[Rfam]
RNA: Early nodulin 40
Organism: Eragrostis curvula
RNA sequence: AUGGAGGACGCAUGGCAGGAGCAUCUGCAUGGCUCUUAAGAGCUGCAUAAGCAGUAUAGAUGCACAGGGAUGGAGAACAAUGGCUGAGAGCUGCUCCUCCUCGUCAGUCAACAGUUUGCUCAUGCCUCUCAUGGCCUUCUUCCCUGGAUUCCAGUUCCAGAUGGCUUAGUGAGGCAUGGACAGAGACCGGCAAGUCAAAAAUCGGCAAUGGUGAGCUCCUGCAGGAGCCUA
Numbered sequence: 001a002u003g004g005a006g007g008a009c010g011c012a013u014g015g016c017a018g019g020a021g022c023a024u025c026u027g028c029a030u031g032g033c034u035c036u037u038a039a040g041a042g043c044u045g046c047a048u049a050a051g052c053a054g055u056a057u058a059g060a061u062g063c064a065c066a067g068g069g070a071u072g073g074a075g076a077a078c079a080a081u082g083g084c085u086g087a088g089a090g091c092u093g094c095u096c097c098u099c100c101u102c103g104u105c106a107g108u109c110a111a112c113a114g115u116u117u118g119c120u121c122a123u124g125c126c127u128c129u130c131a132u133g134g135c136c137u138u139c140u141u142c143c144c145u146g147g148a149u150u151c152c153a154g155u156u157c158c159a160g161a162u163g164g165c166u167u168a169g170u171g172a173g174g175c176a177u178g179g180a181c182a183g184a185g186a187c188c189g190g191c192a193a194g195u196c197a198a199a200a201a202u203c204g205g206c207a208a209u210g211g212u213g214a215g216c217u218c219c220u221g222c223a224g225g226a227g228c229c230u231a
Base pairs, nucleotide, nucleotide: 068100069099070098114187115186116185117184125174126173127172215228216227217226218225